[Rfam]
RNA sequence: GGCCUCCCUCUGUGGGGUGAUCAAUCUGGGGGCCCCGCGAUCGAUUGCCUCACAGAGGGAGGCC
Numbered sequence: 001g002g003c004c005u006c007c008c009u010c011u012g013u014g015g016g017g018u019g020a021u022c023a024a025u026c027u028g029g030g031g032g033c034c035c036c037g038c039g040a041u042c043g044a045u046u047g048c049c050u051c052a053c054a055g056a057g058g059g060a061g062g063c064c
Stems, first nucleotide, its partner, number of pairs: 001064022024041003029036002